[Rfam]
RNA: Caenorhabditis snoRNA ceN49
RNA sequence: UUUGCCCCAUUACCAAACAGUCGCAUGUGUUUUCUAUAUUGCGAUUGCAUGGAAGUGGGCAUAAAUCGUAUUCCAGGACUGUAUUCCACCCCUUCAAUCAAAAACCUAUGGAUUGCGGGGACUUUACCGCGGACCACACUU
Numbered sequence: 001u002u003u004g005c006c007c008c009a010u011u012a013c014c015a016a017a018c019a020g021u022c023g024c025a026u027g028u029g030u031u032u033u034c035u036a037u038a039u040u041g042c043g044a045u046u047g048c049a050u051g052g053a054a055g056u057g058g059g060c061a062u063a064a065a066u067c068g069u070a071u072u073c074c075a076g077g078a079c080u081g082u083a084u085u086c087c088a089c090c091c092c093u094u095c096a097a098u099c100a101a102a103a104a105c106c107u108a109u110g111g112a113u114u115g116c117g118g119g120g121a122c123u124u125u126a127c128c129g130c131g132g133a134c135c136a137c138a139c140u141u
Stems, first nucleotide, its partner, number of pairs: 003061005008055001013052003018047008077134001080131003085126001091119003095115005